[Rfam]
RNA sequence: UACCGAAAAAGGCAAACCCGUGGAAACACGGGGACGCAAAGCCAGUGCCCUAGCAUUUAGCACCGAAGCCUGAUGCGGGUCGAACGGUUACCGAA
Dot-bracket structure: ...........((...((((((....))))))...))..((((.((..((....((................))...))....))))))......
Numbered sequence: 001u002a003c004c005g006a007a008a009a010a011g012g013c014a015a016a017c018c019c020g021u022g023g024a025a026a027c028a029c030g031g032g033g034a035c036g037c038a039a040a041g042c043c044a045g046u047g048c049c050c051u052a053g054c055a056u057u058u059a060g061c062a063c064c065g066a067a068g069c070c071u072g073a074u075g076c077g078g079g080u081c082g083a084a085c086g087g088u089u090a091c092c093g094a095a
Stems, first nucleotide, its partner, number of pairs: 012037002017032006040089004045085002049079002055074002
A member of the RNA family "c-di-GMP-I riboswitch aptamer" from Alteromonadaceae bacterium Bs31, 95 nucleotides long. The family's consensus secondary structure is taken from published work. Rfam's curators write: GEMM was predicted in a large-scale screen for bacterial structured RNA regulatory elements. The family has 155 seed sequences and 5,092 matches in Rfam 15.1.